[Rfam]
RNA sequence: AUUGAAGAGGUUCUAGCGCAACCCUCUAUAAAAAACUAAGGAGAU
Numbered sequence: 001a002u003u004g005a006a007g008a009g010g011u012u013c014u015a016g017c018g019c020a021a022c023c024c025u026c027u028a029u030a031a032a033a034a035a036c037u038a039a040g041g042a043g044a045u
Stems, first nucleotide, its partner, number of pairs: 006027005016037001

This 45-nucleotide sequence from Ignatzschineria ureiclastica belongs to the Rfam family "PreQ1 (pre queuosine) riboswitch aptamer". Gene Ontology term of the family: queuosine biosynthetic process. This family is a bacterial riboswitch that binds to the metabolite preQ1, an intermediate in the biosynthesis of the modified nucleoside queuosine from GTP. One example of this riboswitch is located in the leader of the Bacillus subtilis ykvJKLM (queCDEF) operon which encodes four genes necessary for queuosine production. PreQ1 binding to the riboswitch aptamer is thought to induce premature transcription termination within the leader to down-regulate expression of these genes. The match comes from Rfam's covariance-model search (46 bits).